[Rfam]
RNA sequence: UCUAGGCUUCGCAGUGCUGGAUCCUGGUAAACAGGCGUUCAAGUAACCUAAGCUUCGGUGAAGGGCAAUGCUUGUUGUAAGCUCGGGAGGUCUUGUCAACCUCCGUCGUAUCACCUGCGUACCUCC
Numbered sequence: 001u002c003u004a005g006g007c008u009u010c011g012c013a014g015u016g017c018u019g020g021a022u023c024c025u026g027g028u029a030a031a032c033a034g035g036c037g038u039u040c041a042a043g044u045a046a047c048c049u050a051a052g053c054u055u056c057g058g059u060g061a062a063g064g065g066c067a068a069u070g071c072u073u074g075u076u077g078u079a080a081g082c083u084c085g086g087g088a089g090g091u092c093u094u095g096u097c098a099a100c101c102u103c104c105g106u107c108g109u110a111u112c113a114c115c116u117g118c119g120u121a122c123c124u125c126c
Stems, first nucleotide, its partner, number of pairs: 004124003010119005018113003023035004081109002086104006
Notes
The family of this 126-nucleotide sequence from Luteovirus rosae is "Luteovirus cap-independent translation element (BTE)". Rfam classes the family as a cis-regulatory element. It scores 48 bits against the family's covariance model. The base pairs follow the family's consensus structure, which is taken from published work. Lineage of the source: Viruses > Tolucaviricetes > Tolivirales > Tombusviridae > Luteovirus rosae. This family represents the Luteovirus cap-independent translation element (BTE) as found in barley yellow dwarf virus (BYDV), bean leafroll virus and soybean dwarf virus. This family mediates translation of genomic (gRNA) and subgenomic RNA1 (sgRNA1). On this family, see Shen and Miller, Virology 2004: "Subgenomic RNA as a riboregulator: negative regulation of RNA replication by Barley yellow dwarf virus subgenomic RNA 2".